[Rfam]
RNA sequence: GACACGAGGGCAGCGAUGACCCGCCGGGCGAUCUGUGGUCGCCAUGUGCCCGGCGUCGAGCAGUGGCGCGCCCGGGCCGUCAGAUC
Numbered sequence: 001g002a003c004a005c006g007a008g009g010g011c012a013g014c015g016a017u018g019a020c021c022c023g024c025c026g027g028g029c030g031a032u033c034u035g036u037g038g039u040c041g042c043c044a045u046g047u048g049c050c051c052g053g054c055g056u057c058g059a060g061c062a063g064u065g066g067c068g069c070g071c072c073c074g075g076g077c078c079g080u081c082a083g084a085u086c
Stems, first nucleotide, its partner, number of pairs: 001086002006081002009078002013061002022055007037073002040068004